mir-7950 microRNA precursor family: a 59-nucleotide RNA from Panagrellus redivivus.
RNA sequence: GAGUUCAUCUGUUCCGCCGUUAAUGUAUAGUUCAUUUUGCCGGCGAAAGAGUUGAACUU
Numbered sequence: 001g002a003g004u005u006c007a008u009c010u011g012u013u014c015c016g017c018c019g020u021u022a023a024u025g026u027a028u029a030g031u032u033c034a035u036u037u038u039g040c041c042g043g044c045g046a047a048a049g050a051g052u053u054g055a056a057c058u059u
Base pairs, nucleotide, nucleotide: 002058003057004056005055006054007053009051010050012048013047015045016044017043018042019041022036023035024034025033
Taxonomically the source falls in Panagrellus (Eukaryota, Opisthokonta, Protostomia, Panagrolaimidae).